[Rfam]
The family of this 111-nucleotide sequence from Sanguibacter sp. HDW7 is "SAM (S-adenosyl methionine) riboswitch aptamer". The source organism's lineage runs through Bacteria, Bacillati, Actinomycetes, Sanguibacteraceae and Sanguibacter. The family's consensus secondary structure is taken from published work. It scores 88 bits against the family's covariance model.
RNA sequence: GGUCAUGAGCGUCAGCGCCAAGCCCCGGCUGGCUGACCAGCAACCCCCGCGCGGGGGUGCUCCGGGUGAGGACCAGGCUCCGUCUGCCGUAGACGGGGCAACGAGCGUGGC
Numbered sequence: 001g002g003u004c005a006u007g008a009g010c011g012u013c014a015g016c017g018c019c020a021a022g023c024c025c026c027g028g029c030u031g032g033c034u035g036a037c038c039a040g041c042a043a044c045c046c047c048c049g050c051g052c053g054g055g056g057g058u059g060c061u062c063c064g065g066g067u068g069a070g071g072a073c074c075a076g077g078c079u080c081c082g083u084c085u086g087c088c089g090u091a092g093a094c095g096g097g098g099c100a101a102c103g104a105g106c107g108u109g110g111c
Stems, first nucleotide, its partner, number of pairs: 001074004009038001011037006021030002039061003044057005077099010